[Rfam]
RNA sequence: GGUCGGUGAUGUAAAGUAAAAGGUCUGAAGCUCGGCCCCCCCUCUGUUGGCCGUCUUGGCUCCCAGCAGCUCCGGCUCUGUUUUCCCAUCAUGCUCUAGUGGUGCAGUGGUGGUCCCAGGAGCUGCUGACAGAGACAGGAAGUGACAUCACAGUGCGAGUCUGUACAGAGAGCCUGCAGGCUCAGUGUGAUGAUGACUCACUUCCAACAGAACCAAUCAGAACGGAGCGUGAGGCCCAGGGGGCGGGGCCUGAGUACUGAUCUCACUCUCCUGCUGAGACC
Numbered sequence: 001g002g003u004c005g006g007u008g009a010u011g012u013a014a015a016g017u018a019a020a021a022g023g024u025c026u027g028a029a030g031c032u033c034g035g036c037c038c039c040c041c042c043u044c045u046g047u048u049g050g051c052c053g054u055c056u057u058g059g060c061u062c063c064c065a066g067c068a069g070c071u072c073c074g075g076c077u078c079u080g081u082u083u084u085c086c087c088a089u090c091a092u093g094c095u096c097u098a099g100u101g102g103u104g105c106a107g108u109g110g111u112g113g114u115c116c117c118a119g120g121a122g123c124u125g126c127u128g129a130c131a132g133a134g135a136c137a138g139g140a141a142g143u144g145a146c147a148u149c150a151c152a153g154u155g156c157g158a159g160u161c162u163g164u165a166c167a168g169a170g171a172g173c174c175u176g177c178a179g180g181c182u183c184a185g186u187g188u189g190a191u192g193a194u195g196a197c198u199c200a201c202u203u204c205c206a207a208c209a210g211a212a213c214c215a216a217u218c219a220g221a222a223c224g225g226a227g228c229g230u231g232a233g234g235c236c237c238a239g240g241g242g243g244c245g246g247g248g249c250c251u252g253a254g255u256a257c258u259g260a261u262c263u264c265a266c267u268c269u270c271c272u273g274c275u276g277a278g279a280c281c
Stems, first nucleotide, its partner, number of pairs: 001281004034262002037259001040243007060227004064128007086113007094104001139204006157183009
RNA: Small Cajal body specific RNA 6
Organism: Sander lucioperca